The record is a 113-nucleotide sequence from Metapseudomonas resinovorans, which matches "Pseudomon-groES RNA" in Rfam. Lineage of the source: Bacteria > Pseudomonadati > Pseudomonadota > Pseudomonadaceae > Metapseudomonas resinovorans. The base pairs follow the family's consensus structure, which is taken from published work.
[Rfam]
RNA sequence: GUAUCGGUCACCGCAAGGUUCCUGUUCAACGACAGGUCUGAUUCCAGCGGCGCGCCUGAUGCGCCGCAACCGGCUCCGCCGGACAUUACCAACCCACCGGUGCACGCACCGGC
Numbered sequence: 001g002u003a004u005c006g007g008u009c010a011c012c013g014c015a016a017g018g019u020u021c022c023u024g025u026u027c028a029a030c031g032a033c034a035g036g037u038c039u040g041a042u043u044c045c046a047g048c049g050g051c052g053c054g055c056c057u058g059a060u061g062c063g064c065c066g067c068a069a070c071c072g073g074c075u076c077c078g079c080c081g082g083a084c085a086u087u088a089c090c091a092a093c094c095c096a097c098c099g100g101u102g103c104a105c106g107c108a109c110c111g112g113c
Base pairs, nucleotide, nucleotide: 010019011018012017021036022035023034024033025032026031047067048066049065050064051063052062053061054060070082071081072080073079097112098111099110100109101108